[Rfam]
RNA: Burkholderia sRNA 7
Organism: Trinickia dabaoshanensis
RNA sequence: GUAUUCUUGCGCCCAUGAACCGCAAGCUACCCGCCCUCCGACGUCGCCGCUCGCUCCCCGCCAGGGAAGCCGUCGGCUCGUAGCGGACGCGCGCCUCGCCAGCAAUCGGCAGCAAGCAGGCAAGCGCGUAAUCGGUCAAAACCGCAAAGCCACGGACUACCGUGGCUUUUUU
Numbered sequence: 001g002u003a004u005u006c007u008u009g010c011g012c013c014c015a016u017g018a019a020c021c022g023c024a025a026g027c028u029a030c031c032c033g034c035c036c037u038c039c040g041a042c043g044u045c046g047c048c049g050c051u052c053g054c055u056c057c058c059c060g061c062c063a064g065g066g067a068a069g070c071c072g073u074c075g076g077c078u079c080g081u082a083g084c085g086g087a088c089g090c091g092c093g094c095c096u097c098g099c100c101a102g103c104a105a106u107c108g109g110c111a112g113c114a115a116g117c118a119g120g121c122a123a124g125c126g127c128g129u130a131a132u133c134g135g136u137c138a139a140a141a142c143c144g145c146a147a148a149g150c151c152a153c154g155g156a157c158u159a160c161c162g163u164g165g166c167u168u169u170u171u172u
Stems, first nucleotide, its partner, number of pairs: 007140002011094002014091001020089001031086003039080003043077003046073002049070002054065001146169010